[Rfam]
RNA sequence: ACAGCAAGCCGUCUUAUCGCUGCGAAGAAAUUCGGAGAGGAAAGUCCGGGCAACGCAGAGCAUCCUGCUUCCUAACGGGAAGGGUCUGUUUUGGAGACGAAACAGAUACAGCCAGUGCCACAGAAAAUAACCGCCGGGCUAAUUACUAAUGACGAAUGAUGAAUGACUAAUUAUUCAUUAUUAAUUAAUCAUUAUUGAUUAGUCCGGUAAGGGUGAAAAGGUGCGGUAAGAGCGCACCAGCGGCUGGGUGACCAGUCCGGCUGGGUAAACCUCAGGAGUUGAAAGACCAAAUAGGCCGGCAGCGUCUCCGCUUCGGCGGGACUAAGGGCUGCUCGUCCGAUGUCGGUGGGUAGGUCGAUGGAGCCUGUGCGCGAGUGCAGGCCUGGAUAAAUGAUAAGACGCGCGCCUUAGGGCGUAGCGACAGAACCCGGCUUACAGGCUUGCUGCUACU
Numbered sequence: 001a002c003a004g005c006a007a008g009c010c011g012u013c014u015u016a017u018c019g020c021u022g023c024g025a026a027g028a029a030a031u032u033c034g035g036a037g038a039g040g041a042a043a044g045u046c047c048g049g050g051c052a053a054c055g056c057a058g059a060g061c062a063u064c065c066u067g068c069u070u071c072c073u074a075a076c077g078g079g080a081a082g083g084g085u086c087u088g089u090u091u092u093g094g095a096g097a098c099g100a101a102a103c104a105g106a107u108a109c110a111g112c113c114a115g116u117g118c119c120a121c122a123g124a125a126a127a128u129a130a131c132c133g134c135c136g137g138g139c140u141a142a143u144u145a146c147u148a149a150u151g152a153c154g155a156a157u158g159a160u161g162a163a164u165g166a167c168u169a170a171u172u173a174u175u176c177a178u179u180a181u182u183a184a185u186u187a188a189u190c191a192u193u194a195u196u197g198a199u200u201a202g203u204c205c206g207g208u209a210a211g212g213g214u215g216a217a218a219a220g221g222u223g224c225g226g227u228a229a230g231a232g233c234g235c236a237c238c239a240g241c242g243g244c245u246g247g248g249u250g251a252c253c254a255g256u257c258c259g260g261c262u263g264g265g266u267a268a269a270c271c272u273c274a275g276g277a278g279u280u281g282a283a284a285g286a287c288c289a290a291a292u293a294g295g296c297c298g299g300c301a302g303c304g305u306c307u308c309c310g311c312u313u314c315g316g317c318g319g320g321a322c323u324a325a326g327g328g329c330u331g332c333u334c335g336u337c338c339g340a341u342g343u344c345g346g347u348g349g350g351u352a353g354g355u356c357g358a359u360g361g362a363g364c365c366u367g368u369g370c371g372c373g374a375g376u377g378c379a380g381g382c383c384u385g386g387a388u389a390a391a392u393g394a395u396a397a398g399a400c401g402c403g404c405g406c407c408u409u410a411g412g413g414c415g416u417a418g419c420g421a422c423a424g425a426a427c428c429c430g431g432c433u434u435a436c437a438g439g440c441u442u443g444c445u446g447c448u449a450c451u
Stems, first nucleotide, its partner, number of pairs: 002446009011436001012399007020037002023034004042434003046431005051281004058334004063277005068082005083109001084107010110272002115270002117266003131212002133208013220238006240261001241259003244255004285356004295347006326338004363382008

Record summary:
A member of the RNA family "Bacterial RNase P class A" from Pontibacter fetidus, 451 nucleotides long. Taxonomically the source falls in Pontibacter (Bacteria, Bacteroidota, Cytophagia, Cytophagales).